[Rfam]
RNA sequence: AGCAUAUUUUGCUAUGGCGGCGCUCGACCGCCGCCUGCGUGAUGGUGUCGUUCAUCGACGGGCAUCGAGGGACACACGGGGUCGAGCCGAUCUGCAGGCUGCUGCCGAUCGCUUUG
Dot-bracket structure: ...............(((((.......)))))............................................(((((......((.((.((((....)))).)).)))))))
Rfam assigns this 116-nucleotide RNA from Paracoccus sp. S-4012 to the family "ALIL pseudoknot". The family has 26 seed sequences and 2,146 matches in Rfam 15.1. By type it is a cis-regulatory element. The source organism's lineage runs through Bacteria, Pseudomonadati, Pseudomonadota, Alphaproteobacteria and Paracoccus. The literature on the family includes a 2008 paper in J Biol Chem by Mazauric et al., "Apical loop-internal loop RNA pseudoknots: a new type of stimulator of -1 translational frameshifting in bacteria". It scores 91 bits against the family's covariance model. Rfam links the family to the GO term positive regulation of translational frameshifting. Pairs were carried over by alignment from the consensus structure, which is taken from published work.